[Rfam]
RNA sequence: AAUUUAUACAGAAGUGGCGAGAGAACAGGCUCCGUGACCCACUGGCAACCUUCGGUAAAGCGAAAGGUGCCAAUUCCUGCCCGCCCGGCCGUUGCCCGCGGGACAGAUAAGUU
Numbered sequence: 001a002a003u004u005u006a007u008a009c010a011g012a013a014g015u016g017g018c019g020a021g022a023g024a025a026c027a028g029g030c031u032c033c034g035u036g037a038c039c040c041a042c043u044g045g046c047a048a049c050c051u052u053c054g055g056u057a058a059a060g061c062g063a064a065a066g067g068u069g070c071c072a073a074u075u076c077c078u079g080c081c082c083g084c085c086c087g088g089c090c091g092u093u094g095c096c097c098g099c100g101g102g103a104c105a106g107a108u109a110a111g112u113u
Stems, first nucleotide, its partner, number of pairs: 001113007013043005021032003026079004044071004049067002051064004075105001080102005